[Rfam]
RNA sequence: CCCACACCCAUGUGUGUAGGACCCCAAAUGAUCACCAUUAAAUUUGGCACAGAUCUCUAGAAAAGUUAUCACAUAGGUGUAAGACUUGACUUUUCUAAAGAUAUGUGCUAAAUUUAAUGGUGAUCUUUUAAGGUUCUACAAACAUGGGUGUGGG
Numbered sequence: 001c002c003c004a005c006a007c008c009c010a011u012g013u014g015u016g017u018a019g020g021a022c023c024c025c026a027a028a029u030g031a032u033c034a035c036c037a038u039u040a041a042a043u044u045u046g047g048c049a050c051a052g053a054u055c056u057c058u059a060g061a062a063a064a065g066u067u068a069u070c071a072c073a074u075a076g077g078u079g080u081a082a083g084a085c086u087u088g089a090c091u092u093u094u095c096u097a098a099a100g101a102u103a104u105g106u107g108c109u110a111a112a113u114u115u116a117a118u119g120g121u122g123a124u125c126u127u128u129u130a131a132g133g134u135u136c137u138a139c140a141a142a143c144a145u146g147g148g149u150g151u152g153g154g
Stems, first nucleotide, its partner, number of pairs: 002153012015140009026129003030125003034121018053102004058097011069082001071080003
This 154-nucleotide RNA from Amborella trichopoda belongs to the Rfam family "MIR8565 microRNA precursor family". Its family is annotated with RISC complex and miRNA-mediated post-transcriptional gene silencing in the Gene Ontology.